[Rfam]
MIR162_2 microRNA precursor family: a 144-nucleotide RNA sequence from Zizania palustris.
RNA sequence: GUCUGGGCGCAGUGGUUUAUCGAUCCCUUCCCUGCCUUGUGCUGAUCCAAGAGAGGUUGAUUUCUUGAGAGGGUUUUCCUUGUUGCAACCAAAACAACAACAACAACAACGCUGGAAUCGAUCGAUAAACCUCUGCAUCCAGUU
Numbered sequence: 001g002u003c004u005g006g007g008c009g010c011a012g013u014g015g016u017u018u019a020u021c022g023a024u025c026c027c028u029u030c031c032c033u034g035c036c037u038u039g040u041g042c043u044g045a046u047c048c049a050a051g052a053g054a055g056g057u058u059g060a061u062u063u064c065u066u067g068a069g070a071g072g073g074u075u076u077u078c079c080u081u082g083u084u085g086c087a088a089c090c091a092a093a094a095c096a097a098c099a100a101c102a103a104c105a106a107c108a109a110c111g112c113u114g115g116a117a118u119c120g121a122u123c124g125a126u127a128a129a130c131c132u133c134u135g136c137a138u139c140c141a142g143u144u
Stems, first nucleotide, its partner, number of pairs: 003142005009136004014131012028117004034112002037109003
The source organism's lineage runs through Eukaryota, Petrosaviidae, Poaceae, Oryzeae and Zizania. Pairs were carried over by alignment from the consensus structure, which was predicted with RNAalifold.